RNA: skipping-rope RNA
RNA sequence: CACCGUAGAGCGAUGGAACGGACAGCCAUCGGGCACACGAAAGUGGUAGUCGAUGCAGGGUAGGUCAACCUGCCUACGGUG
Number, nucleotide and partner (000 for none) at each position: 001c081002a080003c079004c078005g077006u076007a075008g074009a000010g000011c000012g030013a029014u028015g027016g026017a000018a000019c000020g000021g066022a065023c064024a000025g000026c016027c015028a014029u013030c012031g000032g050033g047034c046035a000036c045037a044038c043039g000040a000041a000042a000043g038044u037045g036046g034047u033048a000049g000050u032051c000052g000053a000054u000055g073056c072057a071058g070059g069060g000061u000062a000063g000064g023065u022066c021067a000068a000069c059070c058071u057072g056073c055074c008075u007076a006077c005078g004079g003080u002081g001